A member of the RNA family "Mammalian CPEB3 ribozyme" from Crocodylus porosus, 76 nucleotides long. Taxonomically the source falls in Crocodylus (Eukaryota, Metazoa, Eumetazoa, Sauria). A search with the family's covariance model found it, with a score of 45 bits. About the family: The mammalian CPEB3 ribozyme is a self cleaving RNA located in the second intron of the CPEB3 gene which belongs to a family of genes regulating messenger RNA polyadenylation.
[Rfam]
RNA sequence: AUUGGGAUUUAGGAGGCCAUAGCAGAAGAGCCCAUGACAUGACCUGUCAGAUUCCAGCUAAUCUGCAAAUUCUGCU
Numbered sequence: 001a002u003u004g005g006g007a008u009u010u011a012g013g014a015g016g017c018c019a020u021a022g023c024a025g026a027a028g029a030g031c032c033c034a035u036g037a038c039a040u041g042a043c044c045u046g047u048c049a050g051a052u053u054c055c056a057g058c059u060a061a062u063c064u065g066c067a068a069a070u071u072c073u074g075c076u
Base pairs, nucleotide, nucleotide: 015044016043018041021076022075023074024073025072026071027070028040030038048065049064050063051062052061053060
Dot-bracket structure: ..............[[.[..((((((((.(.......).)].]]...((((((......))))))....)))))))